[Rfam]
RNA sequence: CCUACAUGAUGACACCCGCACACGUCUUACGCCAUGCGCAAACGCCAGACCUGCAAAAGGUGAACCCACUGGUGUUGGCAUGGCAACAAGGGGAUGAUUUUGUUGGGGCUACCAACGGUCUGAUUCUAGGG
Numbered sequence: 001c002c003u004a005c006a007u008g009a010u011g012a013c014a015c016c017c018g019c020a021c022a023c024g025u026c027u028u029a030c031g032c033c034a035u036g037c038g039c040a041a042a043c044g045c046c047a048g049a050c051c052u053g054c055a056a057a058a059g060g061u062g063a064a065c066c067c068a069c070u071g072g073u074g075u076u077g078g079c080a081u082g083g084c085a086a087c088a089a090g091g092g093g094a095u096g097a098u099u100u101u102g103u104u105g106g107g108g109c110u111a112c113c114a115a116c117g118g119u120c121u122g123a124u125u126c127u128a129g130g131g
Stems, first nucleotide, its partner, number of pairs: 001130004

Background
The family of this 131-nucleotide RNA from Cyprinodon variegatus is "Small nucleolar RNA SNORD22". Pairs were carried over by alignment from the consensus structure, which was predicted with PFOLD. Taxonomically the source falls in Cyprinodon (Eukaryota, Ctenosquamata, Ovalentaria, Cyprinodontini). Rfam classes the family as a C/D-box small nucleolar RNA. Its family is annotated with nucleolus and RNA processing in the Gene Ontology. A search with the family's covariance model found it, with a score of 54 bits.